[Rfam]
RNA sequence: AUAAAAGCUGUAAUCAAGGACAUGAAUCCUUAACGAGAUCCGUUCAGAGAGAGAGGACAUCGGCUGAAAGCCUCUUCGGUUAUCCUAAGGAUUUACCACCUUGUAGCUGCGAUAUUGAAAUCGGGGAUUUCCUUGAGAGUAAACUUCGCCGGGUAUUCCCGUUACAGAAUGGAUUGAGGAUUCGCUUCUUGGCGAGUCGAAUGAGGGUGGAACCACGAGCGCACUCGUCCCUUUU
Numbered sequence: 001a002u003a004a005a006a007g008c009u010g011u012a013a014u015c016a017a018g019g020a021c022a023u024g025a026a027u028c029c030u031u032a033a034c035g036a037g038a039u040c041c042g043u044u045c046a047g048a049g050a051g052a053g054a055g056g057a058c059a060u061c062g063g064c065u066g067a068a069a070g071c072c073u074c075u076u077c078g079g080u081u082a083u084c085c086u087a088a089g090g091a092u093u094u095a096c097c098a099c100c101u102u103g104u105a106g107c108u109g110c111g112a113u114a115u116u117g118a119a120a121u122c123g124g125g126g127a128u129u130u131c132c133u134u135g136a137g138a139g140u141a142a143a144c145u146u147c148g149c150c151g152g153g154u155a156u157u158c159c160c161g162u163u164a165c166a167g168a169a170u171g172g173a174u175u176g177a178g179g180a181u182u183c184g185c186u187u188c189u190u191g192g193c194g195a196g197u198c199g200a201a202u203g204a205g206g207g208u209g210g211a212a213c214c215a216c217g218a219g220c221g222c223a224c225u226c227g228u229c230c231c232u233u234u235u
Stems, first nucleotide, its partner, number of pairs: 007107002016102004027091006040079003051076006110148003115143002150161003179198007204232004215228005